[Rfam]
RNA sequence: AACCCAUGGGAUGAAGUGAUAGGAUCUUAAGGUCCAGGAAAAUCCCCGGGUCACCAACCGCAGUGAUGCGGCCACAUAAUUGUGGUCCAUUAAAUCAGAUUGUAUCCCAUUAUUGGGAGGGCUAAGACAUGUGUGGAGCCUUUCGAUCAGAUUGUGGAUUCAUGACCGUUUCUCAUAGUAAUUCACUUAGCCUUAUAAAUGGGUUAACAGGACGGGGUUUAUAUUCCCAUGGGC
Numbered sequence: 001a002a003c004c005c006a007u008g009g010g011a012u013g014a015a016g017u018g019a020u021a022g023g024a025u026c027u028u029a030a031g032g033u034c035c036a037g038g039a040a041a042a043u044c045c046c047c048g049g050g051u052c053a054c055c056a057a058c059c060g061c062a063g064u065g066a067u068g069c070g071g072c073c074a075c076a077u078a079a080u081u082g083u084g085g086u087c088c089a090u091u092a093a094a095u096c097a098g099a100u101u102g103u104a105u106c107c108c109a110u111u112a113u114u115g116g117g118a119g120g121g122c123u124a125a126g127a128c129a130u131g132u133g134u135g136g137a138g139c140c141u142u143u144c145g146a147u148c149a150g151a152u153u154g155u156g157g158a159u160u161c162a163u164g165a166c167c168g169u170u171u172c173u174c175a176u177a178g179u180a181a182u183u184c185a186c187u188u189a190g191c192c193u194u195a196u197a198a199a200u201g202g203g204u205u206a207a208c209a210g211g212a213c214g215g216g217g218u219u220u221a222u223a224u225u226c227c228c229a230u231g232g233g234c
Base pairs, nucleotide, nucleotide: 003233004232005231006230007229008228009227010226011225014188015187016186017185018184019183022035023034024033025032026031040220041219042218044217045216046215047214059070060069061068062067071086072085073084074083075082076081094159095158096157103154104153107150112147119141120140121139122138129134190204191203192202193201